Notes
Shown here is a 121-nucleotide RNA sequence from Streptomyces daliensis, a member of the family "Streptomyces sRNA scr5239". On this family, see Vockenhuber et al., PLoS One 2015: "Identification of metE as a second target of the sRNA scr5239 in Streptomyces coelicolor". Rfam links the family to the GO terms negative regulation of translation and mRNA binding.
RNA sequence: CUUCUGCUCUCCCCGCACAGGAGGGCAGAACGAGGCUCACGGCGCUCUCUGCCCUGACUGCGCCGGAGUCUCCGAGCUCCGGGCUGCGGUGCCGGGCGGGUUGAGGGUCCCACCCGCGCGC
Number, nucleotide and partner (000 for none) at each position: 001c000002u000003u029004c028005u027006g026007c000008u024009c023010u022011c021012c020013c000014c000015g000016c000017a000018c000019a000020g012021g011022a010023g009024g008025g000026c006027a005028g004029a003030a000031c000032g072033a071034g070035g069036c068037u000038c066039a000040c065041g064042g063043c000044g061045c060046u057047c056048u000049c000050u000051g000052c000053c000054c000055u000056g047057a046058c000059u000060g045061c044062g000063c042064c041065g040066g038067a000068g036069u035070c034071u033072c032073c000074g000075a000076g090077c089078u088079c000080c086081g085082g000083g000084c000085u081086g080087c000088g078089g077090u076091g000092c000093c000094g115095g114096g113097c000098g111099g110100g109101u000102u000103g000104a000105g000106g000107g000108u000109c100110c099111c098112a000113c096114c095115c094116g000117c000118g000119c000120g000121c000